[Rfam]
RNA: S15-Flavobacteria ribosomal protein leader
RNA sequence: UACCUUUGCGCCCACUUGAUAAACAUCAAGUUACAUAAUAAUCAUUUAAAACAAUAUUAGCAUG
Dot-bracket structure: .............((((((......)))))).................................